RNA sequence: GUGCCUCAAUCUAUUGAGUAAGGAAAUUAUUGGGCCUUGGUAACGCUUGGCAAUGUCCAAAAAGGGCGAAACGAUUUUUGAAAGGUACAGGUCGUCCCCUGAGUCGUUUGCCUACUUUGCAAGCGAUUCGGGUGAAGCGAACUGCCUU
Numbered sequence: 001g002u003g004c005c006u007c008a009a010u011c012u013a014u015u016g017a018g019u020a021a022g023g024a025a026a027u028u029a030u031u032g033g034g035c036c037u038u039g040g041u042a043a044c045g046c047u048u049g050g051c052a053a054u055g056u057c058c059a060a061a062a063a064g065g066g067c068g069a070a071a072c073g074a075u076u077u078u079u080g081a082a083a084g085g086u087a088c089a090g091g092u093c094g095u096c097c098c099c100u101g102a103g104u105c106g107u108u109u110g111c112c113u114a115c116u117u118u119g120c121a122a123g124c125g126a127u128u129c130g131g132g133u134g135a136a137g138c139g140a141a142c143u144g145c146c147u148u
Base pairs, nucleotide, nucleotide: 004023005022006021008019034051035050036049039046054068055067056066057065058064082148083147084146085145086144089143090142092140093139094138095137098132099131101129102128103127104126105125107123108122109121110120111119

The family of this 148-nucleotide RNA sequence from Trichoplusia ni is "U12 minor spliceosomal RNA". On this family, see Tarn and Steitz, Trends Biochem Sci 1997: "Pre-mRNA splicing: the discovery of a new spliceosome doubles the challenge". By type it is a spliceosomal small nuclear RNA. Rfam 15.1 lists 2,106 matches to the family in 1,170 species. A search with the family's covariance model found it, with a score of 98 bits. Taxonomically the source falls in Trichoplusia (Eukaryota, Ecdysozoa, Altocrustacea, Obtectomera).